[Rfam]
A member of the RNA family "SAM riboswitch aptamer (S box leader)" from Schinkia azotoformans, 112 nucleotides long. About the family: The SAM riboswitch is found upstream of a number of genes which code for proteins involved in methionine or cysteine biosynthesis in Gram-positive bacteria. Lineage of the source: Bacteria > Bacillati > Bacilli > Caryophanales > Schinkia azotoformans.
RNA sequence: ACCUUAUCCAGAGAAGGGGAGAGACUGGCUCUAUGAUCCUUCAGCAACCUUGCAGCCAUGCAAAAGGUGCUAACUCCAGUAACAAGUUGUAUAACUUGUUAGAAGAUAAGGA
Numbered sequence: 001a002c003c004u005u006a007u008c009c010a011g012a013g014a015a016g017g018g019g020a021g022a023g024a025c026u027g028g029c030u031c032u033a034u035g036a037u038c039c040u041u042c043a044g045c046a047a048c049c050u051u052g053c054a055g056c057c058a059u060g061c062a063a064a065a066g067g068u069g070c071u072a073a074c075u076c077c078a079g080u081a082a083c084a085a086g087u088u089g090u091a092u093a094a095c096u097u098g099u100u101a102g103a104a105g106a107u108a109a110g111g112a
Base pairs, nucleotide, nucleotide: 002111003110004109005108006107007106008105013042014041015040016039017038021031022030023029025079026078027077028076043071044070045069046068048067049066050063051062052061053060075104080101081100082099083098084097085096086095087094
Dot-bracket structure: .(((((((....(((((...(((.[[[[)))......)))))((((.((((((......))))..))))))...(]]]]((((((((......))))))))..)))))))).